[Rfam]
The record is a 55-nucleotide RNA from Rhizobium deserti, which matches "terC RNA" in Rfam. The base pairs follow the family's consensus structure, which is taken from published work. It scores 53 bits against the family's covariance model.
RNA sequence: UGCCAGGACCGGGCCCCUCUGGCAGCUCAGAGAGCUGCGAUGUCGGACUGGAUCG
Number, nucleotide and partner (000 for none) at each position: 001u000002g000003c000004c000005a000006g049007g048008a000009c046010c045011g044012g043013g000014c000015c000016c000017c000018u000019c000020u000021g000022g038023c037024a036025g035026c034027u033028c000029a000030g000031a000032g000033a027034g026035c025036u024037g023038c022039g000040a000041u000042g000043u012044c011045g010046g009047a000048c007049u006050g000051g000052a000053u000054c000055g000